This 112-nucleotide RNA from Panagrolaimus sp. JU765 belongs to the Rfam family "SL2 RNA". The family is grouped with related families in Rfam's "SL clan". It is annotated as a non-coding RNA gene. Rfam describes the family as follows. This family represents SL2 RNA. SL2 RNA is involved in trans splicing in lower eukaryotes. Trans-splicing is a form of RNA processing.
RNA sequence: GGUUUUUACCCAGUAUCUCAAGGUACUAGGAAUGUUCUGAUCAGAGGAAACUCUGUGUUAGAAACCAAGAAUUUUUGGCAAUGCGUUGAGGGGGUGUAUCCCAUAACGCUAA
Numbered sequence: 001g002g003u004u005u006u007u008a009c010c011c012a013g014u015a016u017c018u019c020a021a022g023g024u025a026c027u028a029g030g031a032a033u034g035u036u037c038u039g040a041u042c043a044g045a046g047g048a049a050a051c052u053c054u055g056u057g058u059u060a061g062a063a064a065c066c067a068a069g070a071a072u073u074u075u076u077g078g079c080a081a082u083g084c085g086u087u088g089a090g091g092g093g094g095u096g097u098a099u100c101c102c103a104u105a106a107c108g109c110u111a112a
Base pairs, nucleotide, nucleotide: 007034008033009030010029013026014025018023038060039059040058041057042055043054044053045052046051085110087108088107091104093101094100